[Rfam]
RNA sequence: UGGGCGGUAUCCAAUUUGGAACUGCACCAAGUAAGCACAAUGAAAAACGGGUCUGCCUUGAUCCAUCAGGACUAGGACAGAGGG
Numbered sequence: 001u002g003g004g005c006g007g008u009a010u011c012c013a014a015u016u017u018g019g020a021a022c023u024g025c026a027c028c029a030a031g032u033a034a035g036c037a038c039a040a041u042g043a044a045a046a047a048c049g050g051g052u053c054u055g056c057c058u059u060g061a062u063c064c065a066u067c068a069g070g071a072c073u074a075g076g077a078c079a080g081a082g083g084g
Base pairs, nucleotide, nucleotide: 001029002028003027004025005024006023007022008021010020011019053080054079055078056076057075058074060072062071063070064069
RNA: pan motif